[Rfam]
RNA sequence: UUUUAGCUGGGGCCGGCUAGGAUCGCGACUUCCUGUCGCAACGCCGGCACUAGUACGUCCUGUCCG
Numbered sequence: 001u002u003u004u005a006g007c008u009g010g011g012g013c014c015g016g017c018u019a020g021g022a023u024c025g026c027g028a029c030u031u032c033c034u035g036u037c038g039c040a041a042c043g044c045c046g047g048c049a050c051u052a053g054u055a056c057g058u059c060c061u062g063u064c065c066g
Stems, first nucleotide, its partner, number of pairs: 012048006025039005053065001055063002
Source information: The family of this 66-nucleotide RNA from Lentibacillus halodurans is "Bacillaceae-1 RNA". The match comes from Rfam's covariance-model search (41 bits). Pairs were carried over by alignment from the consensus structure, which is taken from published work.